A member of the RNA family "SAM riboswitch aptamer (S box leader)" from Geothrix sp., 89 nucleotides long. Rfam's curators write: The SAM riboswitch is found upstream of a number of genes which code for proteins involved in methionine or cysteine biosynthesis in Gram-positive bacteria. The match comes from Rfam's covariance-model search (66 bits).
[Rfam]
RNA sequence: AAGGUGGAGGGACGGGCCCUGUGAAACCUUGGCAACCUGCGAAAGCAAGGUGCCAAUUCCUGCCGCGAGUCCUCGCGGAGAGAUGCUGA
Number, nucleotide and partner (000 for none) at each position: 001a030002a029003g028004g027005u026006g000007g000008a000009g019010g018011g017012a000013c062014g061015g060016g059017c011018c010019c009020u000021g000022u000023g000024a000025a000026a005027c004028c003029u002030u001031g054032g053033c052034a051035a000036c050037c049038u047039g046040c045041g000042a000043a000044a000045g040046c039047a038048a000049g037050g036051u034052g033053c032054c031055a000056a000057u000058u081059c016060c015061u014062g013063c078064c077065g076066c075067g074068a073069g000070u000071c000072c000073u068074c067075g066076c065077g064078g063079a000080g000081a058082g000083a000084u000085g000086c000087u000088g000089a000